Shown here is a 121-nucleotide RNA sequence from Myotis myotis, a member of the family "Small nucleolar RNA SNORA61". From the family's description: ACA61 is a member of the H/ACA class of snoRNA that guide the sites of modification of uridines to pseudouridines. Its family is annotated with nucleolus and RNA processing in the Gene Ontology. Pairs were carried over by alignment from the consensus structure, which was predicted with PFOLD. By type it is an H/ACA-box small nucleolar RNA. Lineage of the source: Eukaryota > Opisthokonta > Deuterostomia > Yangochiroptera > Myotis.
RNA sequence: ACCCUCCGGUUCCCUUUCCCAUCGGAUCCGAACACCGAUCUUGAUGAUCGUAAAAGGAAGGAAAGUAAUACUGAAGCUGGCCUCACAGUGCUUGUAGUCUGUGAGCUAGUUUCAAACAUCG
Numbered sequence: 001a002c003c004c005u006c007c008g009g010u011u012c013c014c015u016u017u018c019c020c021a022u023c024g025g026a027u028c029c030g031a032a033c034a035c036c037g038a039u040c041u042u043g044a045u046g047a048u049c050g051u052a053a054a055a056g057g058a059a060g061g062a063a064a065g066u067a068a069u070a071c072u073g074a075a076g077c078u079g080g081c082c083u084c085a086c087a088g089u090g091c092u093u094g095u096a097g098u099c100u101g102u103g104a105g106c107u108a109g110u111u112u113c114a115a116a117c118a119u120c121g
Stems, first nucleotide, its partner, number of pairs: 003060001005058003020046004025040004077109005083103001